[Rfam]
RNA sequence: AGCCUAAACCCUAUAUAAUUUUGGGCAUGGCGAAAAAAUCUCUUGGAAGGUGCAGAACCCUGCGUUCAGCUAUUCUUCCAAGAGUCACAUCUCGAAAGAGAUGUGGGGUCGCAAGAUCC
Numbered sequence: 001a002g003c004c005u006a007a008a009c010c011c012u013a014u015a016u017a018a019u020u021u022u023g024g025g026c027a028u029g030g031c032g033a034a035a036a037a038a039u040c041u042c043u044u045g046g047a048a049g050g051u052g053c054a055g056a057a058c059c060c061u062g063c064g065u066u067c068a069g070c071u072a073u074u075c076u077u078c079c080a081a082g083a084g085u086c087a088c089a090u091c092u093c094g095a096a097a098g099a100g101a102u103g104u105g106g107g108g109u110c111g112c113a114a115g116a117u118c119c
Stems, first nucleotide, its partner, number of pairs: 002031003009025003013021001015019001040084011052070002055067004086105008106119005

The record is a 119-nucleotide sequence, which matches "LOOT RNA" in Rfam. The sequence is in the family's curated seed alignment.